[Rfam]
A member of the RNA family "U4 spliceosomal RNA" from Octodon degus, 150 nucleotides long.
RNA sequence: AGCUUUGCGCAAUGACAGUAUCGUAGCCAAUGAGGUUUAUCCGAGGCGCGAUUAUUGCUAAUUGUAAACACAGACAUAUUAGAUGACCCAGUGAUAAAAAUAAUCAACAAACACAUUUAACACUUGUCAACAUGUAAUGCAUUGUUUUUC
Numbered sequence: 001a002g003c004u005u006u007g008c009g010c011a012a013u014g015a016c017a018g019u020a021u022c023g024u025a026g027c028c029a030a031u032g033a034g035g036u037u038u039a040u041c042c043g044a045g046g047c048g049c050g051a052u053u054a055u056u057g058c059u060a061a062u063u064g065u066a067a068a069c070a071c072a073g074a075c076a077u078a079u080u081a082g083a084u085g086a087c088c089c090a091g092u093g094a095u096a097a098a099a100a101u102a103a104u105c106a107a108c109a110a111a112c113a114c115a116u117u118u119a120a121c122a123c124u125u126g127u128c129a130a131c132a133u134g135u136a137a138u139g140c141a142u143u144g145u146u147u148u149u150c
Stems, first nucleotide, its partner, number of pairs: 020052005026047003034042002085128003090124004095119004

Pairs were carried over by alignment from the consensus structure, which is taken from published work. A search with the family's covariance model found it, with a score of 67 bits. A reference for the family is Zwieb (1997), "The uRNA database", Nucleic Acids Res.